RNA sequence: UUGAAAAGGGGAGACAUUAUAUAAGAUUGUCUCUUCAUGGGAAAGAAUAGUGAGGUGUAUCAAAUUCAAAGGCCGAGAUACCGUUUCAGUCGUCAUUUCUCCAUUGACGCUCUGAUUGUUGCUCAUCCAUAC
Numbered sequence: 001u002u003g004a005a006a007a008g009g010g011g012a013g014a015c016a017u018u019a020u021a022u023a024a025g026a027u028u029g030u031c032u033c034u035u036c037a038u039g040g041g042a043a044a045g046a047a048u049a050g051u052g053a054g055g056u057g058u059a060u061c062a063a064a065u066u067c068a069a070a071g072g073c074c075g076a077g078a079u080a081c082c083g084u085u086u087c088a089g090u091c092g093u094c095a096u097u098u099c100u101c102c103a104u105u106g107a108c109g110c111u112c113u114g115a116u117u118g119u120u121g122c123u124c125a126u127c128c129a130u131a132c
Stems, first nucleotide, its partner, number of pairs: 007038001009036003013031004017026001071128002075124003080116001082114002089111001091109005097103001
Rfam assigns this 132-nucleotide RNA sequence from Hibiscus syriacus to the family "Small nucleolar RNA snoR111". A search with the family's covariance model found it, with a score of 66 bits. The literature on the family includes a 2002 paper in Curr Biol by Marker et al., "Experimental RNomics: identification of 140 candidates for small non-messenger RNAs in the plant Arabidopsis thaliana". The family's consensus secondary structure was predicted with WAR. Rfam links the family to the GO terms RNA processing and nucleolus. Lineage of the source: Eukaryota > Euphyllophyta > eudicotyledons > rosids > Hibiscus.